[Rfam]
RNA sequence: UACUGUUCAUGAUGAUUAGUUCUAAGCAAUGGGAAUCUCUCUGAAAGAGACUGAGGAGGACUCUUGGUCUGAGACAGUA
Numbered sequence: 001u002a003c004u005g006u007u008c009a010u011g012a013u014g015a016u017u018a019g020u021u022c023u024a025a026g027c028a029a030u031g032g033g034a035a036u037c038u039c040u041c042u043g044a045a046a047g048a049g050a051c052u053g054a055g056g057a058g059g060a061c062u063c064u065u066g067g068u069c070u071g072a073g074a075c076a077g078u079a
Stems, first nucleotide, its partner, number of pairs: 001079007